[Rfam]
RNA sequence: CGCUUCCGACUUCGGUUCAAUAACGAAAAAGAUUUUCGCCUUUUACUAAAAUACUUCCGUGAACCGAAGUCAUAAAGGCAGCUUUCACUAUUUUUUUGAAUAGGUCUUCCUAUUC
Numbered sequence: 001c002g003c004u005u006c007c008g009a010c011u012u013c014g015g016u017u018c019a020a021u022a023a024c025g026a027a028a029a030a031g032a033u034u035u036u037c038g039c040c041u042u043u044u045a046c047u048a049a050a051a052u053a054c055u056u057c058c059g060u061g062a063a064c065c066g067a068a069g070u071c072a073u074a075a076a077g078g079c080a081g082c083u084u085u086c087a088c089u090a091u092u093u094u095u096u097u098g099a100a101u102a103g104g105u106c107u108u109c110c111u112a113u114u115c
Base pairs, nucleotide, nucleotide: 003081004080006078009070010069011068012067013066014065015064016063017062018061019060029056030055031054032052033051034050035049036048099114100113101112102111103110104109
Annotation
A member of the RNA family "U5 spliceosomal RNA" from Dictyostelium discoideum, 115 nucleotides long. About the family: U5 RNA is a component of both types of known spliceosome. It is one of the family's seed sequences. Gene Ontology terms of the family: U5 snRNP and spliceosomal tri-snRNP complex assembly.